[Rfam]
RNA sequence: UAGUUUUGUCUAGGUUAAACUUCUCUAACUUUGACCAAGUUUAUAGGAAAAAUAUAAUAACAUCUACAGUACCAAUUACUAUCAAUACAUAUUUUAUGCCUAUGGAGGUUUUAAUGAAACUAAUUUGAUGUUGUAGAUGUUGGUGUAUUUUUCUAUAAACUUGAUUAUAAGUUAGAGAAGCUUGACUUAGAACAAAACUAA
Numbered sequence: 001u002a003g004u005u006u007u008g009u010c011u012a013g014g015u016u017a018a019a020c021u022u023c024u025c026u027a028a029c030u031u032u033g034a035c036c037a038a039g040u041u042u043a044u045a046g047g048a049a050a051a052a053u054a055u056a057a058u059a060a061c062a063u064c065u066a067c068a069g070u071a072c073c074a075a076u077u078a079c080u081a082u083c084a085a086u087a088c089a090u091a092u093u094u095u096a097u098g099c100c101u102a103u104g105g106a107g108g109u110u111u112u113a114a115u116g117a118a119a120c121u122a123a124u125u126u127g128a129u130g131u132u133g134u135a136g137a138u139g140u141u142g143g144u145g146u147a148u149u150u151u152u153c154u155a156u157a158a159a160c161u162u163g164a165u166u167a168u169a170a171g172u173u174a175g176a177g178a179a180g181c182u183u184g185a186c187u188u189a190g191a192a193c194a195a196a197a198c199u200a201a
Stems, first nucleotide, its partner, number of pairs: 005196005010190009020180006030169001032167003044155008055145002059141010073127003077123001
A member of the RNA family "MIR1435 microRNA precursor family" from Zizania palustris, 201 nucleotides long. Lineage of the source: Eukaryota > Euphyllophyta > Liliopsida > Zizaniinae > Zizania. The family has 3 seed sequences and 1,765 matches in Rfam 15.1. A search with the family's covariance model found it, with a score of 100 bits.